[Rfam]
RNA sequence: CAUUGAUCCCAGGGGGGCUGGUGUUACCAGCUGAGAUUAAGAAUGGAAUUCUUUGACCCUAUAACCUGAUCUGGUUAAUACCAGCGUAGGAAGAGGUUUUAUGUAUUUG
Numbered sequence: 001c002a003u004u005g006a007u008c009c010c011a012g013g014g015g016g017g018c019u020g021g022u023g024u025u026a027c028c029a030g031c032u033g034a035g036a037u038u039a040a041g042a043a044u045g046g047a048a049u050u051c052u053u054u055g056a057c058c059c060u061a062u063a064a065c066c067u068g069a070u071c072u073g074g075u076u077a078a079u080a081c082c083a084g085c086g087u088a089g090g091a092a093g094a095g096g097u098u099u100u101a102u103g104u105a106u107u108u109g
Stems, first nucleotide, its partner, number of pairs: 006097003010093001011060004016054001017031005039053006065090004071084004

This 109-nucleotide RNA sequence from Clostridium aciditolerans belongs to the Rfam family "TPP riboswitch aptamer (THI element)". The match comes from Rfam's covariance-model search (74 bits). Rfam links the family to the GO term thiamine pyrophosphate binding.